[Rfam]
This 129-nucleotide RNA from Mycosarcoma maydis belongs to the Rfam family "U4 spliceosomal RNA".
The base pairs follow the family's consensus structure, which is taken from published work.
Rfam's curators put it in the seed alignment.
Rfam describes the family as follows. U4 small nuclear RNA (U4 snRNA) is a component of the major U2-dependent spliceosome.
RNA sequence: AGCGAGGCAGGCGCUUCAUCCAGUGAGGUCUUUACCGAGGAGAAGCUUAUUGCUGAUUGCAAAUUACCUAUAUUGCACGUCCUUGCUGUCACCAUGACGGCCUGGCAAUUUUUGGCACCCAUCCUUUGG
Number, nucleotide and partner (000 for none) at each position: 001a000002g000003c000004g000005a000006g000007g000008c000009a000010g000011g000012c000013g046014c045015u044016u043017c042018a000019u041020c040021c039022a000023g000024u000025g000026a000027g036028g035029u034030c000031u000032u000033u000034a029035c028036c027037g000038a000039g021040g020041a019042g017043a016044a015045g014046c013047u000048u000049a000050u000051u000052g000053c000054u000055g000056a000057u000058u000059g000060c000061a000062a000063a000064u000065u000066a000067c000068c000069u000070a000071u000072a000073u000074u000075g000076c000077a000078c000079g106080u105081c104082c000083u000084u000085g101086c100087u099088g098089u097090c096091a095092c000093c000094a000095u091096g090097a089098c088099g087100g086101c085102c000103u000104g081105g080106c079107a000108a000109u000110u000111u000112u000113u000114g000115g000116c000117a000118c000119c129120c128121a127122u000123c000124c000125u000126u000127u121128g120129g119
The source organism's lineage runs through Eukaryota, Dikarya, Ustilaginomycotina, Ustilaginales and Mycosarcoma.